Record summary
A member of the RNA family "Group II catalytic intron D1-D4-7" from Hymenoscyphus albidus, 157 nucleotides long. About the family: Group II introns are found in rRNA, tRNA and mRNA of organelles in fungi, plants and protists, and also in mRNA in bacteria.
RNA sequence: UGGGUCAGUCCAUUGACCCAACUCUACUUGGACAUGCAUGAUAAGUAAUUAACGUGUGUGAAGCUUCAAGGACAAUGUACCAAAAUACCCAUGACUGAUUAGCAAUAAUGAGUUAUCGGUGGGCUAGAGUGACUACAACUAUGAUGAACGAAAGUGA
Numbered sequence: 001u002g003g004g005u006c007a008g009u010c011c012a013u014u015g016a017c018c019c020a021a022c023u024c025u026a027c028u029u030g031g032a033c034a035u036g037c038a039u040g041a042u043a044a045g046u047a048a049u050u051a052a053c054g055u056g057u058g059u060g061a062a063g064c065u066u067c068a069a070g071g072a073c074a075a076u077g078u079a080c081c082a083a084a085a086u087a088c089c090c091a092u093g094a095c096u097g098a099u100u101a102g103c104a105a106u107a108a109u110g111a112g113u114u115a116u117c118g119g120u121g122g123g124c125u126a127g128a129g130u131g132a133c134u135a136c137a138a139c140u141a142u143g144a145u146g147a148a149c150g151a152a153a154g155u156g157a
Stems, first nucleotide, its partner, number of pairs: 002019006028069005033060008042051003085096001100126004110117002130150002134148001136146002